The family of this 132-nucleotide RNA sequence from Suricata suricatta is "Small nucleolar RNA SNORA72". The literature on the family includes a 1997 paper in Genes Dev by Ganot et al., "The family of box ACA small nucleolar RNAs is defined by an evolutionarily conserved secondary structure and ubiquitous sequence elements essential for RNA accumulation". NCBI's taxonomy places the organism under Eukaryota, Craniata, Dipnotetrapodomorpha, Eutheria, Suricata. From the family's description: U72 is a member of the H/ACA class of snoRNAs. The snoRNA gene is located in intron 4 of the ribosomal L30 protein gene in human, mouse and chicken. Its family is annotated with nucleolus and RNA processing in the Gene Ontology.

[Rfam]
RNA sequence: UUGUAAAUAUUCUUGCUGUUCUGGUUUUAUAAUAAUCAGGGCAGGCUAAACAUUGGCUGUAUUAAGACCAUGCAUAUGCCCCCAGACCUAGUUCUUUCCCCAGGUCUGGUUUUAUCAGUGAUGGUGAUAAAC
Numbered sequence: 001u002u003g004u005a006a007a008u009a010u011u012c013u014u015g016c017u018g019u020u021c022u023g024g025u026u027u028u029a030u031a032a033u034a035a036u037c038a039g040g041g042c043a044g045g046c047u048a049a050a051c052a053u054u055g056g057c058u059g060u061a062u063u064a065a066g067a068c069c070a071u072g073c074a075u076a077u078g079c080c081c082c083c084a085g086a087c088c089u090a091g092u093u094c095u096u097u098c099c100c101c102a103g104g105u106c107u108g109g110u111u112u113u114a115u116c117a118g119u120g121a122u123g124g125u126g127a128u129a130a131a132c
Base pairs, nucleotide, nucleotide: 003057004056016044017043018042019041020040021039022038023037024036025035026034067125068124069123070122073120082109083108084107085106086105087104088103089102091100